[Rfam]
RNA: pntA sRNA
RNA sequence: UUUUAUGGAUAAUAAAAACCAUAAAGAUGCUUGGAUUAAUUUCACUAAAUUUGUGUUGUGGG
Numbered sequence: 001u002u003u004u005a006u007g008g009a010u011a012a013u014a015a016a017a018a019c020c021a022u023a024a025a026g027a028u029g030c031u032u033g034g035a036u037u038a039a040u041u042u043c044a045c046u047a048a049a050u051u052u053g054u055g056u057u058g059u060g061g062g
Stems, first nucleotide, its partner, number of pairs: 001026008030062004034057002037053003